mraW RNA: a 121-nucleotide sequence from Geotrypetes seraphini. Lineage of the source: Eukaryota > Eumetazoa > Teleostomi > Gymnophiona > Geotrypetes.

[Rfam]
RNA sequence: AAUAGGCCCGGGAGCCUUAGGUCCCUCCUGGGGGCGGGGCCUGAGGCACUUGGGCCCAACCCGACCAUGUGCCUCAGGCCCUGCCCCCAGGAGGGGCCUAAGGCUCCCGGGCCUAUUCUGA
Numbered sequence: 001a002a003u004a005g006g007c008c009c010g011g012g013a014g015c016c017u018u019a020g021g022u023c024c025c026u027c028c029u030g031g032g033g034g035c036g037g038g039g040c041c042u043g044a045g046g047c048a049c050u051u052g053g054g055c056c057c058a059a060c061c062c063g064a065c066c067a068u069g070u071g072c073c074u075c076a077g078g079c080c081c082u083g084c085c086c087c088c089a090g091g092a093g094g095g096g097c098c099u100a101a102g103g104c105u106c107c108c109g110g111g112c113c114u115a116u117u118c119u120g121a
Stems, first nucleotide, its partner, number of pairs: 010108007018100002021097029